[Rfam]
Nucleotides: 054
Base pairs, nucleotide, nucleotide: 013043014041015040016039020036021035022034023033024032025031
Number, partner (000 for none) and nucleotide at each position: 001000u002000g003000c004000a005000u006000u007000c008000a009000c010000c011000g012000u013043u014041g015040u016039a017000a018000g019000u020036c021035g022034c023033u024032u025031u026000g027000g028000a029000u030000a031025a032024a033023a034022g035021c036020g037000u038000c039016u040015g041014c042000u043013a044000g045000a046000u047000g048000c049000a050000g051000u052000u053000a054000a